[Rfam]
RNA sequence: GCCAUGGUGACCGUGGGUGGCCCUACGCGCGGACUUCAAAUCUGUGGGGGACUGACGUCCCAGGAGUUCAAUUCUCCCUCCGUGGC
Numbered sequence: 001g002c003c004a005u006g007g008u009g010a011c012c013g014u015g016g017g018u019g020g021c022c023c024u025a026c027g028c029g030c031g032g033a034c035u036u037c038a039a040a041u042c043u044g045u046g047g048g049g050g051a052c053u054g055a056c057g058u059c060c061c062a063g064g065a066g067u068u069c070a071a072u073u074c075u076c077c078c079u080c081c082g083u084g085g086c
Stems, first nucleotide, its partner, number of pairs: 001086007009078001012027006028046006048061005063077004

A member of the RNA family "Selenocysteine transfer RNA" from Haematococcus lacustris, 86 nucleotides long.
The base pairs follow the family's consensus structure, which is taken from published work.
The source organism's lineage runs through Eukaryota, Chlorophyta, core chlorophytes, Chlorophyceae and Haematococcus.